[Rfam]
RNA sequence: AAAAGAGUGCCAAUGGCCAUAGAAGGAGCAUUCACGUCGCGGCCCCUGUCAGGUAUCUGUUUACCUGCGAAUCCUUCU
Number, nucleotide and partner (000 for none) at each position: 001a000002a000003a000004a000005g000006a000007g000008u000009g000010c000011c000012a000013a000014u000015g044016g043017c042018c041019a000020u000021a078022g077023a076024a075025g074026g073027a072028g040029c039030a000031u000032u000033c000034a000035c000036g000037u000038c000039g029040c028041g018042g017043c016044c015045c000046c000047u000048g000049u000050c067051a066052g065053g064054u063055a062056u000057c000058u000059g000060u000061u000062u055063a054064c053065c052066u051067g050068c000069g000070a000071a000072u027073c026074c025075u024076u023077c022078u021
The family of this 78-nucleotide RNA sequence from Laticauda laticaudata is "Mammalian CPEB3 ribozyme".